The family of this 151-nucleotide RNA from Klebsiella variicola is "sok antitoxin (CssrC)". The sequence is in the family's curated seed alignment. The source organism's lineage runs through Bacteria, Pseudomonadota, Enterobacteriaceae, Klebsiella and Klebsiella variicola. Also identified in Shigella as CssrC. The base pairs follow the family's consensus structure, which is taken from published work.
RNA sequence: GGGUGCUUGAGACUGUGUGUCUCAGGUAUUCAGCGGGAGAUAGACAGAGAAAAGCCCCACCUGAUAGUAAUCAAAGUGAGGCUCCCCUAUGCAUGAACACCAUAAGAGUAGCCUCUUACUUGUUGAAAAUCAACACUGGAGGCGAGGAAUG
Numbered sequence: 001g002g003g004u005g006c007u008u009g010a011g012a013c014u015g016u017g018u019g020u021c022u023c024a025g026g027u028a029u030u031c032a033g034c035g036g037g038a039g040a041u042a043g044a045c046a047g048a049g050a051a052a053a054g055c056c057c058c059a060c061c062u063g064a065u066a067g068u069a070a071u072c073a074a075a076g077u078g079a080g081g082c083u084c085c086c087c088u089a090u091g092c093a094u095g096a097a098c099a100c101c102a103u104a105a106g107a108g109u110a111g112c113c114u115c116u117u118a119c120u121u122g123u124u125g126a127a128a129a130u131c132a133a134c135a136c137u138g139g140a141g142g143c144g145a146g147g148a149a150u151g
Stems, first nucleotide, its partner, number of pairs: 001058003005055004013047004018042006026034002059077002062074001063072003078115005084108001086106001088104004119142003123138001